[Rfam]
Mason-Pfizer monkey virus packaging signal: a 304-nucleotide RNA sequence from Jaculus jaculus.
About the family: This family represents a group of sequences that are related to the Mason-Pfizer monkey virus (MPMV) packaging signal. The packaging signal is located in the 5' UTR and is required for specific RNA encapsidation.
The source organism's lineage runs through Eukaryota, Gnathostomata, Amniota, Dipodidae and Jaculus.
It scores 58 bits against the family's covariance model.
Rfam classes the family as a cis-regulatory element.

RNA sequence: UGGCGCCCAAAUGUGGGGCUCAAGGUACAAAGUGUGACCUGGAUGUCACUCGAGUGGAUGGCCAUCCCCCCAUCAUUGGAUCACCACCUCAUCAGUGAGUGAAGAUCCACAUGCAGAUUAUCACAGGAGUGCCUGCCUGUGAUACAGAUCCGGAGAGGUAAGAAAAGCAACAAAAUUAUGGGGCAAGCAUUAAGUAAGCACGAAUUGCUUGUUGAAGGGCUUAAAAAUCUCAAGACAUGAGGAACAUGAGUUAAGAAAAAAGAUUUAGUGAAAUUCUUUGUCUUUUUAGAAGAUGUCUGCUCUU
Numbered sequence: 001u002g003g004c005g006c007c008c009a010a011a012u013g014u015g016g017g018g019c020u021c022a023a024g025g026u027a028c029a030a031a032g033u034g035u036g037a038c039c040u041g042g043a044u045g046u047c048a049c050u051c052g053a054g055u056g057g058a059u060g061g062c063c064a065u066c067c068c069c070c071c072a073u074c075a076u077u078g079g080a081u082c083a084c085c086a087c088c089u090c091a092u093c094a095g096u097g098a099g100u101g102a103a104g105a106u107c108c109a110c111a112u113g114c115a116g117a118u119u120a121u122c123a124c125a126g127g128a129g130u131g132c133c134u135g136c137c138u139g140u141g142a143u144a145c146a147g148a149u150c151c152g153g154a155g156a157g158g159u160a161a162g163a164a165a166a167g168c169a170a171c172a173a174a175a176u177u178a179u180g181g182g183g184c185a186a187g188c189a190u191u192a193a194g195u196a197a198g199c200a201c202g203a204a205u206u207g208c209u210u211g212u213u214g215a216a217g218g219g220c221u222u223a224a225a226a227a228u229c230u231c232a233a234g235a236c237a238u239g240a241g242g243a244a245c246a247u248g249a250g251u252u253a254a255g256a257a258a259a260a261a262g263a264u265u266u267a268g269u270g271a272a273a274u275u276c277u278u279u280g281u282c283u284u285u286u287u288a289g290a291a292g293a294u295g296u297c298u299g300c301u302c303u304u
Stems, first nucleotide, its partner, number of pairs: 006036001008034001013028003041067004105159003112154001117149001118147002122141005167184002171181001173179001192230001238280007248266005289304002292301001294299001